[Rfam]
RNA sequence: CCUGAACCUGGCAUACAAUGUAGAUUUCUGUGUGCUUGGAUUCUACAGCUACAUUGUCUGCUGGGUUUC
Number, nucleotide and partner (000 for none) at each position: 001c000002c000003u000004g000005a000006a000007c000008c064009u063010g062011g061012c060013a059014u000015a057016c056017a055018a054019u053020g052021u051022a050023g049024a000025u000026u000027u000028c048029u047030g046031u045032g000033u000034g000035c000036u000037u000038g000039g000040a000041u000042u000043c000044u000045a031046c030047a029048g028049c023050u022051a021052c020053a019054u018055u017056g016057u015058c000059u013060g012061c011062u010063g009064g008065g000066u000067u000068u000069c000

mir-221 microRNA precursor family: a 69-nucleotide RNA from Tetraodon nigroviridis. For this family Rfam cites "Parallel DNA pyrosequencing unveils new zebrafish microRNAs" (Soares et al., BMC Genomics, 2009). Rfam links the family to the GO terms RISC complex and miRNA-mediated post-transcriptional gene silencing.